[Rfam]
RNA sequence: UGAUGGAAGGGCACCACCAAGAGUGGAAAUUGCAGGUUAAUUUGACUCAAGACGGGCAACCUCACCUGACCUGGACACGGAAAGGAUUGACACAGAUUGAUAGCUCUUUCUUGAUUUUGUGGGUGGUGGUGCAUGGCUGUUCGUAGUAGGUGGAGUGAUAUGUCUGGUUAAUUCUGACAAUGAACAAGACUCUGGCAUGCUAACUAGCUAGGCAACCCCAGAGCAGUCGGCGCCUAACUUCUCAGAGGGACAAGUGGCAUUCAGCCACCCGAGAUUGAGCAAUAACAGGUCUGUGAUGCCAGUGUGUGUCUGCCCUAUGCUGACAGGUGGAGGUAACCUGUUGAACUCCAUUCAUGAUGGGGAUCGGGGAGUGCAAUUAUUCCUGAUGAAUGAGGAAUUCCCAGUAAGUGCGGGUCAUAUGCUUAUAUUGAUUAAGUCCCUGCCUUUUGUACACACCACCCUUUGCUACUAGCAAUUGGACGGUUUAAUGAGCUCCUUGGAUCGACCCUGCCAGGGUCAGUCACGGCCCUGGUGGAGCACCAAGAAGAUGGUCAAACUUGACUAUCUAGAAGAAGUAAAAGUUGUAAUCAGG
Numbered sequence: 001u002g003a004u005g006g007a008a009g010g011g012c013a014c015c016a017c018c019a020a021g022a023g024u025g026g027a028a029a030u031u032g033c034a035g036g037u038u039a040a041u042u043u044g045a046c047u048c049a050a051g052a053c054g055g056g057c058a059a060c061c062u063c064a065c066c067u068g069a070c071c072u073g074g075a076c077a078c079g080g081a082a083a084g085g086a087u088u089g090a091c092a093c094a095g096a097u098u099g100a101u102a103g104c105u106c107u108u109u110c111u112u113g114a115u116u117u118u119g120u121g122g123g124u125g126g127u128g129g130u131g132c133a134u135g136g137c138u139g140u141u142c143g144u145a146g147u148a149g150g151u152g153g154a155g156u157g158a159u160a161u162g163u164c165u166g167g168u169u170a171a172u173u174c175u176g177a178c179a180a181u182g183a184a185c186a187a188g189a190c191u192c193u194g195g196c197a198u199g200c201u202a203a204c205u206a207g208c209u210a211g212g213c214a215a216c217c218c219c220a221g222a223g224c225a226g227u228c229g230g231c232g233c234c235u236a237a238c239u240u241c242u243c244a245g246a247g248g249g250a251c252a253a254g255u256g257g258c259a260u261u262c263a264g265c266c267a268c269c270c271g272a273g274a275u276u277g278a279g280c281a282a283u284a285a286c287a288g289g290u291c292u293g294u295g296a297u298g299c300c301a302g303u304g305u306g307u308g309u310c311u312g313c314c315c316u317a318u319g320c321u322g323a324c325a326g327g328u329g330g331a332g333g334u335a336a337c338c339u340g341u342u343g344a345a346c347u348c349c350a351u352u353c354a355u356g357a358u359g360g361g362g363a364u365c366g367g368g369g370a371g372u373g374c375a376a377u378u379a380u381u382c383c384u385g386a387u388g389a390a391u392g393a394g395g396a397a398u399u400c401c402c403a404g405u406a407a408g409u410g411c412g413g414g415u416c417a418u419a420u421g422c423u424u425a426u427a428u429u430g431a432u433u434a435a436g437u438c439c440c441u442g443c444c445u446u447u448u449g450u451a452c453a454c455a456c457c458a459c460c461c462u463u464u465g466c467u468a469c470u471a472g473c474a475a476u477u478g479g480a481c482g483g484u485u486u487a488a489u490g491a492g493c494u495c496c497u498u499g500g501a502u503c504g505a506c507c508c509u510g511c512c513a514g515g516g517u518c519a520g521u522c523a524c525g526g527c528c529c530u531g532g533u534g535g536a537g538c539a540c541c542a543a544g545a546a547g548a549u550g551g552u553c554a555a556a557c558u559u560g561a562c563u564a565u566c567u568a569g570a571a572g573a574a575g576u577a578a579a580a581g582u583u584g585u586a587a588u589c590a591g592g
Base pairs, nucleotide, nucleotide: 001453002452003450004449005448007447008446009445010444011443012442013441016437017436021400022399023398024397025324028321032320033319034318035316036315041056042055043054044053068311071308076121077120078119079118080117089110090109092107095106096105128300129299130298131297134296135294136290137289138288139286140285141284146185147184150181151180152161154159165176166175167174191278192277194275196248198246200245201244203242206239207238209236251271254268255267256266257265258264326353327352328350329349330348331347332346360391367384368383369382370381371380407429408428409427410426412424413423414422456591458588461584464581467577468576469575470574476568478567479566480565482563483562484561485560487558489556492553494551495550497548498547502543504541508535509534510533511532512531514529515528516527517526

The family of this 592-nucleotide part of an RNA from Platysternon megacephalum is "Eukaryotic small subunit ribosomal RNA". Its Rfam clan is "SSU clan". A search with the family's covariance model found it, with a score of 1104 bits. The organism belongs to Platysternon, within Eukaryota. Gene Ontology terms of the family: structural constituent of ribosome and ribosome.